[Rfam]
Nucleotides: 116
Stems, first nucleotide, its partner, number of pairs: 003078004009068011028054008098115006
Number, partner (000 for none) and nucleotide at each position: 001000a002000c003078a004077c005076u006075c007000u008000g009068g010067u011066u012065u013064c014063u015062c016061u017060u018059c019058a020000u021000a022000u023000c024000g025000u026000a027000u028054a029053a030052a031051u032050c033049u034048u035047u036000c037000g038000c039000c040000u041000u042000u043000u044000a045000c046000u047035a048034a049033a050032g051031a052030u053029u054028u055000c056000c057000g058019u059018g060017g061016a062015g063014a064013g065012a066011a067010a068009c069000a070000a071000c072000u073000c074000u075006g076005a077004g078003u079000u080000u081000u082000c083000a084000a085000c086000u087000a088000a089000u090000u091000u092000u093000u094000u095000g096000a097000g098115g099114c100113c101112u102111u103110g104000c105000a106000u107000c108000u109000g110103c111102a112101g113100g114099g115098u116000c
Background
A member of the RNA family "U5 spliceosomal RNA" from Loxodonta africana, 116 nucleotides long. U5 RNA is a component of both types of known spliceosome. It is annotated as a spliceosomal small nuclear RNA. NCBI's taxonomy places the organism under Eukaryota, Opisthokonta, Deuterostomia, Sarcopterygii, Loxodonta. Rfam links the family to the GO terms U5 snRNP and spliceosomal tri-snRNP complex assembly.